A member of the RNA family "Small nucleolar RNA SNORA9" from Channa argus, 135 nucleotides long. ACA9 is a member of the H/ACA class of snoRNA that guide the sites of modification of uridines to pseudouridines. It scores 101 bits against the family's covariance model. It is annotated as an H/ACA-box small nucleolar RNA.

[Rfam]
RNA sequence: AUGCAGACCUGACCAGCAAGGCCGAGCCUGCAGUGGCCCUGUUCUUUCCUGUAGCGUCUGCUAGAGCGAUGUGAGUCAGUUUGAGGCCCUGCUGUGACUCUUCACUGCAGGGUUAAAGUUAAACCUCAGACAUAC
Numbered sequence: 001a002u003g004c005a006g007a008c009c010u011g012a013c014c015a016g017c018a019a020g021g022c023c024g025a026g027c028c029u030g031c032a033g034u035g036g037c038c039c040u041g042u043u044c045u046u047u048c049c050u051g052u053a054g055c056g057u058c059u060g061c062u063a064g065a066g067c068g069a070u071g072u073g074a075g076u077c078a079g080u081u082u083g084a085g086g087c088c089c090u091g092c093u094g095u096g097a098c099u100c101u102u103c104a105c106u107g108c109a110g111g112g113u114u115a116a117a118g119u120u121a122a123a124c125c126u127c128a129g130a131c132a133u134a135c
Stems, first nucleotide, its partner, number of pairs: 003061006019045003024039001026037003072128004087112006094105003